[Rfam]
RNA sequence: CCCGUGUCAGGCCGCAAAGCGCCACUUCGCCAAGGAGUGCAGCCUGUAUGGCCCCAGGAGGACUGGGU
Number, nucleotide and partner (000 for none) at each position: 001c000002c000003c000004g000005u000006g040007u000008c046009a045010g044011g043012c042013c021014g020015c019016a000017a000018a000019g015020c014021g013022c000023c039024a038025c037026u036027u000028c034029g000030c000031c000032a000033a000034g028035g000036a026037g025038u024039g023040c006041a000042g012043c011044c010045u009046g008047u000048a000049u000050g000051g000052c000053c067054c066055c065056a064057g063058g000059a000060g000061g000062a000063c057064u056065g055066g054067g053068u000
RNA: Flavivirus 3'UTR stem loop IV
Organism: Orthoflavivirus usutuense